RNA sequence: CCUGUCGAAGUUUCCCCCAGGAAAGCAGUACGGCAAGCAGUUUUAUGAGGUAAAGCGAAUGAUUAGAGGCCUGGGGGUUGAAACAACCUUCACCUAUUCUCAAACUUUAAAUAUGUAAGAAGCCCUUGUUACUUAGUUGAACGUGGGCAUUCGAAUGCGCCGUAUUAGUGGGCCAUUUUUGGUAAGCAGAACUGGCGAUGCGGGAUGAACCGAACGCGAGGUUAAGGUGCCGGAAUGCACGCUCAUCAGACCCCACAAAAGGUGUUAGUUCAUCUAGACAGCAGGACGGUGGCCAUGGAAGUCGGAACCCGCUAAGGAGUGUGUAACAACUCACCUGCCGAAUGAACUAGCCCUGAAAAUGGAUGGCGCUCAAGCGUGCUACCCAUACCUCGCCGCCGGGGCGGGCUCUUUGCCCCGGCGAGUAGGCAGGCGUGGAGGCCCGUGACGAAGCCUAGGGGGUGACCCCGGGUCGAACGGCCUCUAGUGCAGAU
Numbered sequence: 001c002c003u004g005u006c007g008a009a010g011u012u013u014c015c016c017c018c019a020g021g022a023a024a025g026c027a028g029u030a031c032g033g034c035a036a037g038c039a040g041u042u043u044u045a046u047g048a049g050g051u052a053a054a055g056c057g058a059a060u061g062a063u064u065a066g067a068g069g070c071c072u073g074g075g076g077g078u079u080g081a082a083a084c085a086a087c088c089u090u091c092a093c094c095u096a097u098u099c100u101c102a103a104a105c106u107u108u109a110a111a112u113a114u115g116u117a118a119g120a121a122g123c124c125c126u127u128g129u130u131a132c133u134u135a136g137u138u139g140a141a142c143g144u145g146g147g148c149a150u151u152c153g154a155a156u157g158c159g160c161c162g163u164a165u166u167a168g169u170g171g172g173c174c175a176u177u178u179u180u181g182g183u184a185a186g187c188a189g190a191a192c193u194g195g196c197g198a199u200g201c202g203g204g205a206u207g208a209a210c211c212g213a214a215c216g217c218g219a220g221g222u223u224a225a226g227g228u229g230c231c232g233g234a235a236u237g238c239a240c241g242c243u244c245a246u247c248a249g250a251c252c253c254c255a256c257a258a259a260a261g262g263u264g265u266u267a268g269u270u271c272a273u274c275u276a277g278a279c280a281g282c283a284g285g286a287c288g289g290u291g292g293c294c295a296u297g298g299a300a301g302u303c304g305g306a307a308c309c310c311g312c313u314a315a316g317g318a319g320u321g322u323g324u325a326a327c328a329a330c331u332c333a334c335c336u337g338c339c340g341a342a343u344g345a346a347c348u349a350g351c352c353c354u355g356a357a358a359a360u361g362g363a364u365g366g367c368g369c370u371c372a373a374g375c376g377u378g379c380u381a382c383c384c385a386u387a388c389c390u391c392g393c394c395g396c397c398g399g400g401g402c403g404g405g406c407u408c409u410u411u412g413c414c415c416c417g418g419c420g421a422g423u424a425g426g427c428a429g430g431c432g433u434g435g436a437g438g439c440c441c442g443u444g445a446c447g448a449a450g451c452c453u454a455g456g457g458g459g460u461g462a463c464c465c466c467g468g469g470u471c472g473a474a475c476g477g478c479c480u481c482u483a484g485u486g487c488a489g490a491u
Stems, first nucleotide, its partner, number of pairs: 001430006011024005027166007041120007053108001054106002060102003065097001067095003072092006079085001122148004127143004172196004177191005201212003216393005222387001226383003235380001237379001240376003260354003264351010281338005287311003293305002312316001317332001321330002394420009431486001433483008442475002450470002456465003
Shown here is a 491-nucleotide part of an RNA from Carpinus fangiana, a member of the family "Eukaryotic large subunit ribosomal RNA". Gene Ontology terms of the family: ribosome and structural constituent of ribosome. The match comes from Rfam's covariance-model search (3332 bits).